Annotation: The record is a 121-nucleotide sequence from Erwinia sp. Leaf53, which matches "Enterobacteria greA leader" in Rfam. By type it is a cis-regulatory leader. Its family is annotated with regulation of gene expression in the Gene Ontology. A reference for the family is Naville and Gautheret (2010), "Premature terminator analysis sheds light on a hidden world of bacterial transcriptional attenuation", Genome Biol. It scores 117 bits against the family's covariance model.

[Rfam]
RNA sequence: GUCAUACUACGGUGCAUCGUGGUGGAAAGUAAACGAUGACCCCCAGGGAACUCUGGGGUAAAAUACGUAUCAAAUUGCAAAAUCAAUCCUGCCCUGGGGCGACCCCGGGCCGGGUUUCUUU
Numbered sequence: 001g002u003c004a005u006a007c008u009a010c011g012g013u014g015c016a017u018c019g020u021g022g023u024g025g026a027a028a029g030u031a032a033a034c035g036a037u038g039a040c041c042c043c044c045a046g047g048g049a050a051c052u053c054u055g056g057g058g059u060a061a062a063a064u065a066c067g068u069a070u071c072a073a074a075u076u077g078c079a080a081a082a083u084c085a086a087u088c089c090u091g092c093c094c095u096g097g098g099g100c101g102a103c104c105c106c107g108g109g110c111c112g113g114g115u116u117u118c119u120u121u
Stems, first nucleotide, its partner, number of pairs: 001040005010035002014030002041048002057071004088114004093109006